[Rfam]
RNA sequence: GUCAAAACUGAAUUUGUACCUCAUAUAAUAGUGAGAAUAUGGCUCACAAGUCUCUACCGAACUGCCUUAAACAGUUUGCCUAUGAGGGAAGUGUACCUAGGU
Numbered sequence: 001g002u003c004a005a006a007a008c009u010g011a012a013u014u015u016g017u018a019c020c021u022c023a024u025a026u027a028a029u030a031g032u033g034a035g036a037a038u039a040u041g042g043c044u045c046a047c048a049a050g051u052c053u054c055u056a057c058c059g060a061a062c063u064g065c066c067u068u069a070a071a072c073a074g075u076u077u078g079c080c081u082a083u084g085a086g087g088g089a090a091g092u093g094u095a096c097c098u099a100g101g102u
Base pairs, nucleotide, nucleotide: 019087020086021085022084023083024082025081029049031047032046033045034044035043058078059077060076061075062074063073064072
Dot-bracket structure: ..................(((((((...(.(((((.......))))).)........(((((((.......)))))))..)))))))...............